Notes
Small nucleolar RNA SNORA25: a 123-nucleotide sequence from Molossus molossus. Rfam's curators write: ACA25 is a member of the H/ACA class of snoRNA that guide the sites of modification of uridines to pseudouridines. Its family is annotated with nucleolus and RNA processing in the Gene Ontology. It scores 100 bits against the family's covariance model.
RNA sequence: AUGUCUUUUCAGAGAGAACUUAUGGGACCAAAACCAGAAGCUCUUAACACUGUGACCUAAGAUUGAAGUUCUCCAUAGGAUAAUAGACACUCAAUAGUGCUGUUUUCCUGAGGAGAUACUGUA
Numbered sequence: 001a002u003g004u005c006u007u008u009u010c011a012g013a014g015a016g017a018a019c020u021u022a023u024g025g026g027a028c029c030a031a032a033a034c035c036a037g038a039a040g041c042u043c044u045u046a047a048c049a050c051u052g053u054g055a056c057c058u059a060a061g062a063u064u065g066a067a068g069u070u071c072u073c074c075a076u077a078g079g080a081u082a083a084u085a086g087a088c089a090c091u092c093a094a095u096a097g098u099g100c101u102g103u104u105u106u107c108c109u110g111a112g113g114a115g116a117u118a119c120u121g122u123a
Stems, first nucleotide, its partner, number of pairs: 003056003007052001014045004019040003023037001026035001070116005077109004085101002088099004